[Rfam]
RNA sequence: GGUAGGGGGCGGGCUCCGGCGCUGGGACCCCACUAGGGUGGUGCCUUGGCCCCGCCCCGCCC
Numbered sequence: 001g002g003u004a005g006g007g008g009g010c011g012g013g014c015u016c017c018g019g020c021g022c023u024g025g026g027a028c029c030c031c032a033c034u035a036g037g038g039u040g041g042u043g044c045c046u047u048g049g050c051c052c053c054g055c056c057c058c059g060c061c062c
Base pairs, nucleotide, nucleotide: 001061002060003059006058007057008056009055010054011053012052013051014049015048018045019044020043021042022041023040027039028038029037030036
RNA: mir-4488 microRNA precursor family
Organism: Gorilla gorilla